The family of this 64-nucleotide RNA sequence from Candidula unifasciata is "mir-375 microRNA precursor family".
RNA sequence: AGUCACACGAGCAGUACGUAACAAGACCUCCACAGGUGUUUUGUUCGUUCGGCUCGCGUUAUUA
Numbered sequence: 001a002g003u004c005a006c007a008c009g010a011g012c013a014g015u016a017c018g019u020a021a022c023a024a025g026a027c028c029u030c031c032a033c034a035g036g037u038g039u040u041u042u043g044u045u046c047g048u049u050c051g052g053c054u055c056g057c058g059u060u061a062u063u064a
Stems, first nucleotide, its partner, number of pairs: 001063003005059002008056005017047002021044004026039002
The base pairs follow the family's consensus structure, which was predicted with RNAalifold.
Rfam links the family to the GO terms miRNA-mediated post-transcriptional gene silencing and RISC complex.